Rfam assigns this 137-nucleotide RNA from Molossus molossus to the family "Small nucleolar RNA SNORA44". The base pairs follow the family's consensus structure, which was predicted with PFOLD. From the family's description: ACA44 is a member of the H/ACA class of snoRNA that guide the sites of modification of uridines to pseudouridines. On this family, see Huttenhofer et al., EMBO J 2001: "RNomics: an experimental approach that identifies 201 candidates for novel, small, non-messenger RNAs in mouse". It is annotated as an H/ACA-box small nucleolar RNA.
RNA sequence: CAGCAUUUUUCCAAGGGUUGUGGCUGGUUGUAGCCAUGGGAUGGAUCUCCAACUGCAUGUGAGAGCAACCUGGAGAGACUGACAGCUCGGGUCAAAGCCAAAACUCAAGGCAGCUGCCACUUGCCUUUCCUGUAUUA
Numbered sequence: 001c002a003g004c005a006u007u008u009u010u011c012c013a014a015g016g017g018u019u020g021u022g023g024c025u026g027g028u029u030g031u032a033g034c035c036a037u038g039g040g041a042u043g044g045a046u047c048u049c050c051a052a053c054u055g056c057a058u059g060u061g062a063g064a065g066c067a068a069c070c071u072g073g074a075g076a077g078a079c080u081g082a083c084a085g086c087u088c089g090g091g092u093c094a095a096a097g098c099c100a101a102a103a104c105u106c107a108a109g110g111c112a113g114c115u116g117c118c119a120c121u122u123g124c125c126u127u128u129c130c131u132g133u134a135u136u137a
Stems, first nucleotide, its partner, number of pairs: 011039002016035007072130006085117002088110001089106003